[Rfam]
RNA: SAM riboswitch aptamer (S box leader)
RNA sequence: CACUCAUCGAGACCGGCUGAGGGACAGGCCCUUUGAAGCCGGGGCAACCUGCGGAGCGUUUCCGUCAAGGUGCCAACUCCUGCGGAGGUGCGCGGUGCACCUGCCGGUAGAUGGGCG
Numbered sequence: 001c002a003c004u005c006a007u008c009g010a011g012a013c014c015g016g017c018u019g020a021g022g023g024a025c026a027g028g029c030c031c032u033u034u035g036a037a038g039c040c041g042g043g044g045c046a047a048c049c050u051g052c053g054g055a056g057c058g059u060u061u062c063c064g065u066c067a068a069g070g071u072g073c074c075a076a077c078u079c080c081u082g083c084g085g086a087g088g089u090g091c092g093c094g095g096u097g098c099a100c101c102u103g104c105c106g107g108u109a110g111a112u113g114g115g116c117g
Base pairs, nucleotide, nucleotide: 001117003115004114005113006112007111008110013042014041015040016039017038021031022030023029025082026081027080028079043074044073045072046071048070049069051065052064053063078109083106084105085104087102088101